[Rfam]
RNA sequence: CUUGGCUAUGGUGAUAUGGUCCCGUCAACGAUUAUGGGUAAAAUCGUCGGUGGAAUAUGUUCACUAUCUGGUGUACUAGUUAUCGCAUUACCAGUACCGGUCAGUACCGUAAUCAUA
Numbered sequence: 001c002u003u004g005g006c007u008a009u010g011g012u013g014a015u016a017u018g019g020u021c022c023c024g025u026c027a028a029c030g031a032u033u034a035u036g037g038g039u040a041a042a043a044u045c046g047u048c049g050g051u052g053g054a055a056u057a058u059g060u061u062c063a064c065u066a067u068c069u070g071g072u073g074u075a076c077u078a079g080u081u082a083u084c085g086c087a088u089u090a091c092c093a094g095u096a097c098c099g100g101u102c103a104g105u106a107c108c109g110u111a112a113u114c115a116u117a
Stems, first nucleotide, its partner, number of pairs: 002117001004114002007111005013102003018097001021094001037077004050062001
RNA: Potassium channel RNA editing signal